[Rfam]
RNA: Ribosomal protein L10 leader
Organism: Fructilactobacillus fructivorans
RNA sequence: UUAGUUGAAUAUGAUUCGCCUAAGACUCAGGUGGUUUUAACCUUAAUUAUGCCUGCCGAGGAGUAAAACACUCUUUCUCUAUGUUUUGGCGAACAUAGGGAUUUUUUAUUAAGUCC
Numbered sequence: 001u002u003a004g005u006u007g008a009a010u011a012u013g014a015u016u017c018g019c020c021u022a023a024g025a026c027u028c029a030g031g032u033g034g035u036u037u038u039a040a041c042c043u044u045a046a047u048u049a050u051g052c053c054u055g056c057c058g059a060g061g062a063g064u065a066a067a068a069c070a071c072u073c074u075u076u077c078u079c080u081a082u083g084u085u086u087u088g089g090c091g092a093a094c095a096u097a098g099g100g101a102u103u104u105u106u107u108a109u110u111a112a113g114u115c116c
Stems, first nucleotide, its partner, number of pairs: 028055005033042003076101010